[Rfam]
RNA sequence: GCACGGGUUGGAUUUAUGGCAGGCCUGUCCCUCUGGGCCUUUCAUACUGUCCUAUGCCAGAGCAAACUGUGGUUCUGAACCAUUGCCUGGCCUAUGGGCUACUGGCACUGAAGGGGGUUGCACAGAG
Numbered sequence: 001g002c003a004c005g006g007g008u009u010g011g012a013u014u015u016a017u018g019g020c021a022g023g024c025c026u027g028u029c030c031c032u033c034u035g036g037g038c039c040u041u042u043c044a045u046a047c048u049g050u051c052c053u054a055u056g057c058c059a060g061a062g063c064a065a066a067c068u069g070u071g072g073u074u075c076u077g078a079a080c081c082a083u084u085g086c087c088u089g090g091c092c093u094a095u096g097g098g099c100u101a102c103u104g105g106c107a108c109u110g111a112a113g114g115g116g117g118u119u120g121c122a123c124a125g126a127g
Stems, first nucleotide, its partner, number of pairs: 001057003005052004015046005021040003024036002070120006081110002086105002088101005
Description:
Shown here is a 127-nucleotide RNA sequence from Dipodomys ordii, a member of the family "Small nucleolar RNA SNORA42/SNORA80 family". It scores 112 bits against the family's covariance model. The members of this family belong to the H/ACA class of snoRNAs that guide the sites of modification of uridines to pseudouridines. Human ACA42 (SNORA42) was cloned from HeLa cells by immunoprecipitation with anti-GAR1 antibody. Its is predicted to guide the pseudouridylation of residues U109 and U572 of 18S rRNA. ACA42 shares the same host gene with ACA26, ACA46, ACA50. This family also includes mammalian snoRNA ACA67 (SNORA80) which was identified by computational screening and its expression in mouse experimentally verified by Northern blot and primer extension analysis. ACA67 is proposed to guide the pseudouridylation of the same 18S rRNA residues as ACA42. On this family, see Schattner et al., RNA 2006: "A computational screen for mammalian pseudouridylation guide H/ACA RNAs". The family's consensus secondary structure was predicted with RNAalifold.